msiK RNA: a 57-nucleotide RNA from Propioniciclava sinopodophylli. It is annotated as a cis-regulatory element. It scores 58 bits against the family's covariance model.
[Rfam]
RNA sequence: CCCGAGUAUUUCCACUACGGAUCGUCGGGCACGUACCUGCCCGUGGAAAGGAUGUGU
Numbered sequence: 001c002c003c004g005a006g007u008a009u010u011u012c013c014a015c016u017a018c019g020g021a022u023c024g025u026c027g028g029g030c031a032c033g034u035a036c037c038u039g040c041c042c043g044u045g046g047a048a049a050g051g052a053u054g055u056g057u
Base pairs, nucleotide, nucleotide: 009049010048011047012046013045014044026043027042028041029040030039031038
The source organism's lineage runs through Bacteria, Actinomycetota, Propionibacteriales, Propionibacteriaceae and Propioniciclava.